[Rfam]
RNA: c-di-GMP-I-GGC riboswitch aptamer
RNA sequence: UUUUGUUGUGCCAAACUUGCUGUGAAGCAAGGACGGAAAGCUAUGGGUCUUUAAGAGUAAGAUCGCCAGGCUGCCAAAA
Number, nucleotide and partner (000 for none) at each position: 001u079002u000003u076004u000005g000006u000007u000008g000009u000010g000011c036012c035013a000014a000015a000016c031017u030018u029019g028020c027021u026022g000023u000024g000025a000026a021027g020028c019029a018030a017031g016032g000033a000034c065035g012036g011037a000038a000039a072040g071041c070042u069043a000044u068045g067046g066047g063048u062049c061050u000051u000052u000053a000054a000055g000056a000057g000058u000059a000060a000061g049062a048063u047064c000065g034066c046067c045068a044069g042070g041071c040072u039073g000074c000075c000076a003077a000078a000079a001